[Rfam]
RNA sequence: CCGAAACAUCAAGAGCAGUCAUCUUCAGAUGGACUCGCCAACCGAGCAUUGGAAGCCACGGUGGUCAGUACGAUGUGGUAGUAUUAACUUCAAAAACAUUCCAAAUU
Numbered sequence: 001c002c003g004a005a006a007c008a009u010c011a012a013g014a015g016c017a018g019u020c021a022u023c024u025u026c027a028g029a030u031g032g033a034c035u036c037g038c039c040a041a042c043c044g045a046g047c048a049u050u051g052g053a054a055g056c057c058a059c060g061g062u063g064g065u066c067a068g069u070a071c072g073a074u075g076u077g078g079u080a081g082u083a084u085u086a087a088c089u090u091c092a093a094a095a096a097c098a099u100u101c102c103a104a105a106u107u
Stems, first nucleotide, its partner, number of pairs: 006076005015036001017035004037065003042061003046056002049103001051101003078091001080089002
About this RNA
Shown here is a 107-nucleotide RNA sequence from Prevotella communis, a member of the family "SAM-I/IV (S-adenosyl methionine) riboswitch aptamer". Its family is annotated with regulation of gene expression and S-adenosylmethionine metabolic process in the Gene Ontology. Rfam 15.1 lists 567 matches to the family in 508 species. Its Rfam clan is "SAM clan". For this family Rfam cites "The aptamer core of SAM-IV riboswitches mimics the ligand-binding site of SAM-I riboswitches" (Weinberg et al., RNA, 2008).